A member of the RNA family "Small nucleolar RNA R30/Z108" from Daucus carota, 98 nucleotides long.
RNA sequence: GAAGAUUACAAUGAUGAUAUCAAGCUCCCUCUUCUUAAUUAAUGUUGAGGACACUCGCUGGCUGAAUCGAACCAUAAUAUACUGCCAACACUGAGUAA
Numbered sequence: 001g002a003a004g005a006u007u008a009c010a011a012u013g014a015u016g017a018u019a020u021c022a023a024g025c026u027c028c029c030u031c032u033u034c035u036u037a038a039u040u041a042a043u044g045u046u047g048a049g050g051a052c053a054c055u056c057g058c059u060g061g062c063u064g065a066a067u068c069g070a071a072c073c074a075u076a077a078u079a080u081a082c083u084g085c086c087a088a089c090a091c092u093g094a095g096u097a098a
Stems, first nucleotide, its partner, number of pairs: 006098004
A search with the family's covariance model found it, with a score of 81 bits. From the family's description: snoR30 is a C/D box small nucleolar RNA which acts as a methylation guide for 18S ribosomal RNA in plants. Rfam classes the family as a C/D-box small nucleolar RNA. Rfam links the family to the GO terms RNA processing and nucleolus. Rfam 15.1 lists 626 matches to the family in 219 species. The family's consensus secondary structure was predicted with PFOLD.